[Rfam]
RNA sequence: AUGGAUACCGUACGGGGAAGGUGAGAACCUUCGACAAGGUUCGAGCUGAGCGCAGCGAAACAACGCGCUUCAGCGCGGCCCGAAGGGUGAGGAGCGAAGCGACGAAUAAUCCUUCCCCCACCACCA
Numbered sequence: 001a002u003g004g005a006u007a008c009c010g011u012a013c014g015g016g017g018a019a020g021g022u023g024a025g026a027a028c029c030u031u032c033g034a035c036a037a038g039g040u041u042c043g044a045g046c047u048g049a050g051c052g053c054a055g056c057g058a059a060a061c062a063a064c065g066c067g068c069u070u071c072a073g074c075g076c077g078g079c080c081c082g083a084a085g086g087g088u089g090a091g092g093a094g095c096g097a098a099g100c101g102a103c104g105a106a107u108a109a110u111c112c113u114u115c116c117c118c119c120a121c122c123a124c125c126a
Base pairs, nucleotide, nucleotide: 015117016116017115018114019113020112021111022109032089033088035086040084041083042082043081047057048056064077065076066075067074068073
The record is a 126-nucleotide RNA from Serratia rubidaea, which matches "RtT RNA" in Rfam.
About the family: This family represents a bacterial cis-regulatory element known as RtT RNA. The exact function of RtT is unknown although it is thought that it may be involved in changing the cellular response in relation to amino acid starvation.
On this family, see Bosl and Kersten, Nucleic Acids Res 1991: "A novel RNA product of the tyrT operon of Escherichia coli".
The family's consensus secondary structure is taken from published work.
Its family is annotated with cellular response to amino acid starvation in the Gene Ontology.